RNA: permuted transfer-messenger RNA
Nucleotides: 212
Stems, first nucleotide, its partner, number of pairs: 001139005014129004026117003030114003036052005053099007140155003
Number, partner (000 for none) and nucleotide at each position: 001139g002138g003137c004136g005135a006000u007000a008000a009000a010000a011000g012000c013000c014129g015128g016127a017126u018000g019000g020000a021000a022000u023000a024000a025000g026117c027116g028115u029000u030114g031113c032112g033000g034000a035000c036052c037051c038050g039049g040048g041000g042000g043000c044000a045000g046000u047000g048040c049039c050038c051037g052036g053099c054098g055097c056096c057095u058094c059093c060000a061000c062000c063000a064000a065000c066000u067000a068000a069000c070000c071000a072000c073000a074000a075000a076000a077000a078000g079000a080000a081000c082000a083000g084000u085000g086000g087000c088000u089000u090000c091000a092000c093059g094058g095057g096056g097055g098054c099053g100000a101000a102000a103000c104000a105000g106000g107000a108000u109000c110000g111000a112032c113031g114030u115028g116027c117026g118000u119000g120000g121000u122000a123000a124000a125000g126017g127016u128015u129014c130000g131000g132000u133000c134000u135005u136004c137003g138002c139001c140155c141154g142153g143000c144000a145000u146000g147000g148000u149000a150000c151000c152000a153142c154141c155140g156000a157000u158000a159000u160000c161000g162000g163000g164000c165000c166000a167000a168000u169000c170000g171000a172000u173000a174000u175000a176000u177000g178000c179000c180000a181000a182000c183000g184000a185000c186000a187000a188000u189000g190000a191000g192000g193000c194000a195000u196000a197000u198000g199000c200000u201000c202000u203000c204000g205000c206000c207000g208000c209000u210000u211000a212000a